[Rfam]
RNA sequence: CCCGCAAUUUUGAGGCCAUAGUAGAAGUGCUCAUGGUGUGGUCUUGUCAGAUUCCAACAAAUCUGUGAAUUUUGUU
Numbered sequence: 001c002c003c004g005c006a007a008u009u010u011u012g013a014g015g016c017c018a019u020a021g022u023a024g025a026a027g028u029g030c031u032c033a034u035g036g037u038g039u040g041g042u043c044u045u046g047u048c049a050g051a052u053u054c055c056a057a058c059a060a061a062u063c064u065g066u067g068a069a070u071u072u073u074g075u076u
Base pairs, nucleotide, nucleotide: 014043015042016041017040020076021075022074023073024072025071026070027039028038029037048065049064050063051062052061053060
RNA: Mammalian CPEB3 ribozyme